[Rfam]
RNA sequence: GGUUUGAAUGACGAGUUAGAGGAAGUCAUCGUCGAGAAAACGAAACAGACGUUGGCUUCAAUUUCAUCCGGGCCAAAAUACACUCA
Numbered sequence: 001g002g003u004u005u006g007a008a009u010g011a012c013g014a015g016u017u018a019g020a021g022g023a024a025g026u027c028a029u030c031g032u033c034g035a036g037a038a039a040a041c042g043a044a045a046c047a048g049a050c051g052u053u054g055g056c057u058u059c060a061a062u063u064u065c066a067u068c069c070g071g072g073c074c075a076a077a078a079u080a081c082a083c084u085c086a
Stems, first nucleotide, its partner, number of pairs: 001074002004071003008067004022059002025056004030051004
RNA: Human rhinovirus internal cis-acting regulatory element (CRE)
Organism: Enterovirus betarhino